Small nucleolar RNA SNORA68: a 131-nucleotide RNA from Nannospalax galili. The family's consensus secondary structure was predicted with PFOLD. It scores 62 bits against the family's covariance model. Rfam classes the family as an H/ACA-box small nucleolar RNA. Rfam 15.1 lists 1,079 matches to the family in 643 species. Rfam's curators write: U68 is a member of the H/ACA class of small nucleolar RNAs (snoRNAs) which act as guides in the the modification of uridines to pseudouridines. The literature on the family includes a 1997 paper in Genes Dev by Ganot et al., "The family of box ACA small nucleolar RNAs is defined by an evolutionarily conserved secondary structure and ubiquitous sequence elements essential for RNA accumulation".

RNA sequence: CGAGCACCUCAACCCAAAAACUGCCGCUGCCUGUAGCUGUGGUUUAGCAACUGUGUGCACAGCAAGGUUGCCUUGUCACCUUUGGAGGGGCUGCAUGGUUCUCCAAAGAGUGAAUCAAGGGCUCUCCAGCC
Number, nucleotide and partner (000 for none) at each position: 001c000002g058003a000004g056005c055006a054007c053008c000009u000010c000011a000012a000013c000014c000015c000016a000017a000018a000019a044020a043021c042022u041023g040024c039025c000026g037027c036028u035029g000030c000031c000032u000033g000034u000035a028036g027037c026038u000039g024040u023041g022042g021043u020044u019045u000046a000047g000048c000049a000050a000051c000052u000053g007054u006055g005056u004057g000058c002059a000060c000061a000062g000063c000064a000065a000066g000067g000068u000069u000070g122071c121072c120073u119074u118075g000076u000077c000078a000079c000080c108081u107082u106083u105084g104085g103086a102087g101088g100089g099090g000091c098092u000093g000094c000095a000096u000097g000098g091099u089100u088101c087102u086103c085104c084105a083106a082107a081108g080109a000110g000111u000112g000113a000114a000115u000116c000117a000118a074119g073120g072121g071122c070123u000124c000125u000126c000127c000128a000129g000130c000131c000